[Rfam]
RNA sequence: UGCUUCCUGGUCAAGCACACUGCUAAAACUACAAAAUCUAGAUCUUUCUAAUUUUUGUAGUAAUGCUAGCAGAGUACACAUGGGAAGAAGAAUAAAUGCAAUGAUUUGAGAGAUAGGGAUGGACCUCUUUCUUAAUGUCCAGUGUCCUUUGUCUUCAAAACUCAAUGCAACACAU
Numbered sequence: 001u002g003c004u005u006c007c008u009g010g011u012c013a014a015g016c017a018c019a020c021u022g023c024u025a026a027a028a029c030u031a032c033a034a035a036a037u038c039u040a041g042a043u044c045u046u047u048c049u050a051a052u053u054u055u056u057g058u059a060g061u062a063a064u065g066c067u068a069g070c071a072g073a074g075u076a077c078a079c080a081u082g083g084g085a086a087g088a089a090g091a092a093u094a095a096a097u098g099c100a101a102u103g104a105u106u107u108g109a110g111a112g113a114u115a116g117g118g119a120u121g122g123a124c125c126u127c128u129u130u131c132u133u134a135a136u137g138u139c140c141a142g143u144g145u146c147c148u149u150u151g152u153c154u155u156c157a158a159a160a161c162u163c164a165a166u167g168c169a170a171c172a173c174a175u
Base pairs, nucleotide, nucleotide: 018074021071022070023069024068025067028064030062031061034055035054039050040049041048042047097169098168099167100166102164103163104162116145118143120141121140122139123138
A member of the RNA family "Small nucleolar RNA SNORA81" from Microcaecilia unicolor, 175 nucleotides long. Taxonomically the source falls in Microcaecilia (Eukaryota, Metazoa, Eumetazoa, Teleostomi). Its family is annotated with RNA processing and nucleolus in the Gene Ontology. The match comes from Rfam's covariance-model search (122 bits). The family's consensus secondary structure was predicted with WAR.